The record is a 92-nucleotide sequence from Grimontia hollisae, which matches "Tryptophan operon leader" in Rfam. NCBI's taxonomy places the organism under Bacteria, Gammaproteobacteria, Vibrionales, Vibrionaceae, Grimontia hollisae. The base pairs follow the family's consensus structure, which is taken from published work. The match comes from Rfam's covariance-model search (43 bits). Rfam classes the family as a cis-regulatory leader.

RNA sequence: ACACGUUGGUGGCACUCCCAAUAAUCGGGCAGUGUGAUGCGUUAUCGCGUAAAAAAGACGUCACCAAGCCCGCAUAACGCGGGUUUUUUUGU
Numbered sequence: 001a002c003a004c005g006u007u008g009g010u011g012g013c014a015c016u017c018c019c020a021a022u023a024a025u026c027g028g029g030c031a032g033u034g035u036g037a038u039g040c041g042u043u044a045u046c047g048c049g050u051a052a053a054a055a056a057g058a059c060g061u062c063a064c065c066a067a068g069c070c071c072g073c074a075u076a077a078c079g080c081g082g083g084u085u086u087u088u089u090u091g092u
Stems, first nucleotide, its partner, number of pairs: 009040003012035005017029003067085007